[Rfam]
RNA sequence: GAUUAUUAAGGGCAAACUUGCUGAAAAGCAAGGACGCAAAGCCACAGGGUCUAAUGUUCGCAAGAACGAUGACAGCCUGGCUGCCGAA
Numbered sequence: 001g002a003u004u005a006u007u008a009a010g011g012g013c014a015a016a017c018u019u020g021c022u023g024a025a026a027a028g029c030a031a032g033g034a035c036g037c038a039a040a041g042c043c044a045c046a047g048g049g050u051c052u053a054a055u056g057u058u059c060g061c062a063a064g065a066a067c068g069a070u071g072a073c074a075g076c077c078u079g080g081c082u083g084c085c086g087a088a
Base pairs, nucleotide, nucleotide: 012037013036017032018031019030020029021028022027040082041081042080043079046078047077048076049073050072051071056067057066058065059064
About this RNA: Shown here is an 88-nucleotide sequence from Cohnella abietis, a member of the family "c-di-GMP-I riboswitch aptamer". The source organism's lineage runs through Bacteria, Bacillota, Caryophanales, Paenibacillaceae and Cohnella. A search with the family's covariance model found it, with a score of 87 bits.